This 67-nucleotide RNA sequence from Metabacillus lacus belongs to the Rfam family "Bacillaceae-1 RNA". It is annotated as a small RNA. Pairs were carried over by alignment from the consensus structure, which is taken from published work. The match comes from Rfam's covariance-model search (77 bits).
RNA sequence: AGUAAAGGAAGUCAUGCUAAGUGCGCCACGUCCUGUGGCAACGCAUGACUGUCCGACGUCGUGUCGG
Numbered sequence: 001a002g003u004a005a006a007g008g009a010a011g012u013c014a015u016g017c018u019a020a021g022u023g024c025g026c027c028a029c030g031u032c033c034u035g036u037g038g039c040a041a042c043g044c045a046u047g048a049c050u051g052u053c054c055g056a057c058g059u060c061g062u063g064u065c066g067g
Stems, first nucleotide, its partner, number of pairs: 011049007025039005053067005